[Rfam]
RNA sequence: GUAUUACCGGGAGUUCCCUUCAAGCACUUUACGGAGCACCUCGCCAAGGUAUUAUGUGAAGUGCUUGGGGGAACUCUCAAUGUGAC
Numbered sequence: 001g002u003a004u005u006a007c008c009g010g011g012a013g014u015u016c017c018c019u020u021c022a023a024g025c026a027c028u029u030u031a032c033g034g035a036g037c038a039c040c041u042c043g044c045c046a047a048g049g050u051a052u053u054a055u056g057u058g059a060a061g062u063g064c065u066u067g068g069g070g071g072a073a074c075u076c077u078c079a080a081u082g083u084g085a086c
Stems, first nucleotide, its partner, number of pairs: 005082002009078001011076010022066012035053002

The family of this 86-nucleotide RNA sequence from Triticum aestivum is "mir-395 microRNA precursor family". The literature on the family includes a 2004 paper in Mol Cell by Jones-Rhoades and Bartel, "Computational Identification of Plant MicroRNAs and Their Targets, Including a Stress-Induced miRNA". It scores 64 bits against the family's covariance model. The family has 25 seed sequences and 2,798 matches in Rfam 15.1. From the family's description: mir-395 was identified in both Arabidopsis thaliana and Oryza sativa computationally and was later experimentally verified. mir-395 is thought to target mRNAs coding for ATP sulphurylases. The mature sequence is excised from the 3' arm of the hairpin. Lineage of the source: Eukaryota > Streptophyta > Euphyllophyta > Pooideae > Triticum.